[Rfam]
RNA sequence: UGAUAGCUGUGAAGUGGGAGGUUGCUACUUUCAUUUUUAAUUUAAAAGAUAGAAAGUAGGUUUUCACACUGAGCGAAGGUCAUGUUACUAAAACUGGCGACAA
Numbered sequence: 001u002g003a004u005a006g007c008u009g010u011g012a013a014g015u016g017g018g019a020g021g022u023u024g025c026u027a028c029u030u031u032c033a034u035u036u037u038u039a040a041u042u043u044a045a046a047a048g049a050u051a052g053a054a055a056g057u058a059g060g061u062u063u064u065c066a067c068a069c070u071g072a073g074c075g076a077a078g079g080u081c082a083u084g085u086u087a088c089u090a091a092a093a094c095u096g097g098c099g100a101c102a103a
Base pairs, nucleotide, nucleotide: 014069015068016067018065019064020063021062025059026058027057028056029055030054031053032052079101080100081099084098085097086096087095
The record is a 103-nucleotide RNA sequence, which matches "S10-Clostridia ribosomal protein leader" in Rfam. On this family, see Eckert and Weinberg, BMC Microbiol 2020: "Discovery of 20 novel ribosomal leader candidates in bacteria and archaea". The family's RNA type in Rfam is cis-regulatory leader.